ZMP/ZTP riboswitch aptamer (pfl RNA motif): a 164-nucleotide RNA sequence from Limnohabitans sp. 103DPR2. For this family Rfam cites "Metal Ion-Mediated Nucleobase Recognition by the ZTP Riboswitch" (Trausch et al., Chem Biol, 2015). Taxonomically the source falls in Limnohabitans (Bacteria, Pseudomonadati, Betaproteobacteria, Burkholderiales). A search with the family's covariance model found it, with a score of 44 bits.
RNA sequence: CUAGGGGUACGCAACUGGCGAUAGGAGCCUGGUGUUGGCAUUCAAUGCCCCCAGCCUCUGACGUGGAUACGAAAGGGCUUUGCCCCUCUUAAAACCACUGGGGAGCGUGCACCUUGCGCAGGUGUUGUGGCACAAGGUUUCAGCCGUUCGCCUGGGCAGCCCAU
Numbered sequence: 001c002u003a004g005g006g007g008u009a010c011g012c013a014a015c016u017g018g019c020g021a022u023a024g025g026a027g028c029c030u031g032g033u034g035u036u037g038g039c040a041u042u043c044a045a046u047g048c049c050c051c052c053a054g055c056c057u058c059u060g061a062c063g064u065g066g067a068u069a070c071g072a073a074a075g076g077g078c079u080u081u082g083c084c085c086c087u088c089u090u091a092a093a094a095c096c097a098c099u100g101g102g103g104a105g106c107g108u109g110c111a112c113c114u115u116g117c118g119c120a121g122g123u124g125u126u127g128u129g130g131c132a133c134a135a136g137g138u139u140u141c142a143g144c145c146g147u148u149c150g151c152c153u154g155g156g157c158a159g160c161c162c163a164u
Base pairs, nucleotide, nucleotide: 003114004113005112007110008109009108010107011106012105015102016101017152018151019150020149021148063098064097065096066095141159143157144156145155